Rfam assigns this 131-nucleotide RNA sequence from Jaculus jaculus to the family "Small nucleolar RNA SNORA33".
RNA sequence: AAGCCAGCCAAUUAAUUGAGUUAUCUGAAUGUCUUUCUACAUAAAUUUAGAAAAAGUUGGCAAAAGUGAUGCCAUAUUAUAAACCUCAAGAUCCACUGAGGUCAUUAAGGUCUCUGAAAAUGGCUACACUA
Number, nucleotide and partner (000 for none) at each position: 001a000002a000003g061004c060005c059006a058007g057008c000009c000010a000011a000012u000013u000014a000015a000016u043017u041018g040019a000020g000021u000022u000023a000024u000025c000026u000027g000028a000029a000030u000031g000032u000033c000034u000035u000036u000037c000038u000039a000040c018041a017042u000043a016044a000045a000046u000047u000048u000049a000050g000051a000052a000053a000054a000055a000056g000057u007058u006059g005060g004061c003062a000063a000064a000065a000066g000067u000068g000069a000070u000071g124072c123073c122074a121075u000076a000077u000078u000079a000080u000081a000082a000083a111084c110085c109086u108087c000088a106089a105090g000091a000092u000093c101094c000095a000096c000097u000098g000099a000100g000101g093102u000103c000104a000105u089106u088107a000108a086109g085110g084111u083112c000113u000114c000115u000116g000117a000118a000119a000120a000121u074122g073123g072124c071125u000126a000127c000128a000129c000130u000131a000
The family has 28 seed sequences and 1,176 matches in Rfam 15.1. Rfam classes the family as an H/ACA-box small nucleolar RNA. ACA33 is a member of the H/ACA class of snoRNA that guide the sites of modification of uridines to pseudouridines. Its family is annotated with RNA processing and nucleolus in the Gene Ontology. The family's consensus secondary structure was predicted with PFOLD.